[Rfam]
The family of this 75-nucleotide RNA sequence from Hymenochirus boettgeri is "U1A polyadenylation inhibition element (PIE)". Gene Ontology term of the family: regulation of mRNA polyadenylation. The family's RNA type in Rfam is cis-regulatory element. A reference for the family is Varani et al. (2000), "The NMR structure of the 38 kDa U1A protein - PIE RNA complex reveals the basis of cooperativity in regulation of polyadenylation by human U1A protein", Nat Struct Biol. Rfam describes the family as follows. This family represents the U1A polyadenylation inhibition element (PIE). PIE is a regulatory RNA which is responsible for the regulation of the length of the polyA tail of the U1A pre-mRNA. The PIE is located in the U1A mRNA 3' UTR. PIE adopts a U-shaped structure, with binding sites for a single U1A protein at each bend and when complexed with the two proteins it blocks activity of poly(A) polymerase (PAP), and inhibits its activity. The base pairs follow the family's consensus structure, which is taken from published work.
RNA sequence: GUUCUUAGCAUUGCACCCAGAGUCUGGUUUCCAGACAUUGAACCUGGAGCCCAUAUGAAAUAAAUAUCUUUUUUU
Numbered sequence: 001g002u003u004c005u006u007a008g009c010a011u012u013g014c015a016c017c018c019a020g021a022g023u024c025u026g027g028u029u030u031c032c033a034g035a036c037a038u039u040g041a042a043c044c045u046g047g048a049g050c051c052c053a054u055a056u057g058a059a060a061u062a063a064a065u066a067u068c069u070u071u072u073u074u075u
Stems, first nucleotide, its partner, number of pairs: 005053001008050002017047004022036005